[Rfam]
RNA sequence: CACACACUUUCGCUGAAUUCCUUUAAGGAAGCGGGGGAACCAAUUAUUUGGGGUGAAUCCUAUUUUAUAAUAGGUAGGGCCAUUCUCUUUCGGCCCGAAUCCGUCAGCUAACCUCGUAAGCGUGGGAAGAGGAGGU
Numbered sequence: 001c002a003c004a005c006a007c008u009u010u011c012g013c014u015g016a017a018u019u020c021c022u023u024u025a026a027g028g029a030a031g032c033g034g035g036g037g038a039a040c041c042a043a044u045u046a047u048u049u050g051g052g053g054u055g056a057a058u059c060c061u062a063u064u065u066u067a068u069a070a071u072a073g074g075u076a077g078g079g080c081c082a083u084u085c086u087c088u089u090u091c092g093g094c095c096c097g098a099a100u101c102c103g104u105c106a107g108c109u110a111a112c113c114u115c116g117u118a119a120g121c122g123u124g125g126g127a128a129g130a131g132g133a134g135g136u
Stems, first nucleotide, its partner, number of pairs: 011122004018030003031117006041050002051102003059074004077096004
RNA: c-di-AMP riboswitch aptamer (ydaO/yuaA leader)